[Rfam]
RNA: Small nucleolar RNA SNORA53
Organism: Megalops atlanticus
RNA sequence: AACACGCUCCUUAGAUCCACCUCUUGGGGGCGCUCCUGCACUGAAGCAGCAGCUCCAGUCUGGAGGCCCCCGGCAACUUUGUGGUUGUACAGUAGGAGGUGCUUGAGUCAUUGGCGUGUGAGAGCAGUCUACCUGCCCCUCCGGCCCCCUCGGCUGCACUGACCCCCCUGCCGGCUCUGCAGGCAGGAAGCUCCCAGUGUGGCCAGGCCGGAGGGCGGACACU
Numbered sequence: 001a002a003c004a005c006g007c008u009c010c011u012u013a014g015a016u017c018c019a020c021c022u023c024u025u026g027g028g029g030g031c032g033c034u035c036c037u038g039c040a041c042u043g044a045a046g047c048a049g050c051a052g053c054u055c056c057a058g059u060c061u062g063g064a065g066g067c068c069c070c071c072g073g074c075a076a077c078u079u080u081g082u083g084g085u086u087g088u089a090c091a092g093u094a095g096g097a098g099g100u101g102c103u104u105g106a107g108u109c110a111u112u113g114g115c116g117u118g119u120g121a122g123a124g125c126a127g128u129c130u131a132c133c134u135g136c137c138c139c140u141c142c143g144g145c146c147c148c149c150u151c152g153g154c155u156g157c158a159c160u161g162a163c164c165c166c167c168c169u170g171c172c173g174g175c176u177c178u179g180c181a182g183g184c185a186g187g188a189a190g191c192u193c194c195c196a197g198u199g200u201g202g203c204c205a206g207g208c209c210g211g212a213g214g215g216c217g218g219a220c221a222c223u
Stems, first nucleotide, its partner, number of pairs: 002119007010107005018101007025072006034064003040059004073088006133218005141211001143209004155201007